[Rfam]
Nucleotides: 083
Base pairs, nucleotide, nucleotide: 014045015044016043018041021083022082023081024080025079026078027077028040029039030038050072051071052070053069054068055067
Number, partner (000 for none) and nucleotide at each position: 001000a002000u003000a004000a005000c006000a007000a008000a009000a010000g011000c012000a013000a014045g015044g016043g017000c018041c019000a020000u021083a022082g023081c024080a025079g026078a027077a028040g029039u030038g031000u032000u033000c034000a035000c036000a037000u038030u039029g040028u041018g042000a043016c044015u045014c046000c047000u048000g049000u050072c051071a052070g053069g054068u055067a056000a057000u058000a059000c060000c061000u062000g063000g064000u065000a066000a067055u068054a069053c070052c071051u072050g073000u074000g075000a076000a077027u078026u079025c080024u081023g082022c083021u
The record is an 83-nucleotide RNA sequence from Crocodylus porosus, which matches "Mammalian CPEB3 ribozyme" in Rfam.
The family's consensus secondary structure is taken from published work.
The source organism's lineage runs through Eukaryota, Deuterostomia, Tetrapoda, Crocodylidae and Crocodylus.
It scores 50 bits against the family's covariance model.